Glm Y RNA activator of glmS mRNA: a 149-nucleotide sequence from Citrobacter freundii. For this family Rfam cites "The small RNA GlmY acts upstream of the sRNA GlmZ in the activation of glmS expression and is subject to regulation by polyadenylation in Escherichia coli" (Reichenbach et al., Nucleic Acids Res, 2008). This family consists of a number of bacterial RNA genes of around 167 bases in length. The tke1 RNA gene is present in Escherichia coli, Shigella flexneri, Yersinia pestis and Salmonella species where it is found between the yfhK and purL genes. The function of this RNA is unknown. The organism belongs to Citrobacter freundii complex, within Bacteria. Rfam classes the family as a small RNA. Its Rfam clan is "Glm clan".
[Rfam]
RNA sequence: AGUGGCUCAUUCACCUUCUUAUGUCAGCCCCUUCGGGACGCGCUACAUAAACUUCGAAUGACGCACAACAAGGUGCCUGCCGUCCAACUUCUGAUAUUUGCCUUGCGCAUAUCAAACUCCGGGCGAAACGUCGAGUUAGGCACCGCCUU
Numbered sequence: 001a002g003u004g005g006c007u008c009a010u011u012c013a014c015c016u017u018c019u020u021a022u023g024u025c026a027g028c029c030c031c032u033u034c035g036g037g038a039c040g041c042g043c044u045a046c047a048u049a050a051a052c053u054u055c056g057a058a059u060g061a062c063g064c065a066c067a068a069c070a071a072g073g074u075g076c077c078u079g080c081c082g083u084c085c086a087a088c089u090u091c092u093g094a095u096a097u098u099u100g101c102c103u104u105g106c107g108c109a110u111a112u113c114a115a116a117c118u119c120c121g122g123g124c125g126a127a128a129c130g131u132c133g134a135g136u137u138a139g140g141c142a143c144c145g146c147c148u149u
Stems, first nucleotide, its partner, number of pairs: 005064002007061006019050006026044003072144007081125005092114006127137003
It scores 144 bits against the family's covariance model.